Rfam assigns this 94-nucleotide sequence from Sphingomonas sp. SRS2 to the family "Glycine riboswitch aptamer". Rfam's curators write: This family represents the bacterial glycine riboswitch. The source organism's lineage runs through Bacteria, Alphaproteobacteria, Sphingomonadales, Sphingomonadaceae and Sphingomonas.
RNA sequence: GCUGGCCAUGCGGGAGAGUGCAAGGGCGCAAGCUCGAGCCGCCGAAGGAGCAACCGCCCCGGAAUCUCUCAGGUCAACGGACCGCAUGGACAGG
Numbered sequence: 001g002c003u004g005g006c007c008a009u010g011c012g013g014g015a016g017a018g019u020g021c022a023a024g025g026g027c028g029c030a031a032g033c034u035c036g037a038g039c040c041g042c043c044g045a046a047g048g049a050g051c052a053a054c055c056g057c058c059c060c061g062g063a064a065u066c067u068c069u070c071a072g073g074u075c076a077a078c079g080g081a082c083c084g085c086a087u088g089g090a091c092a093g094g
Stems, first nucleotide, its partner, number of pairs: 006089008020039002041074003044070002048068003054062002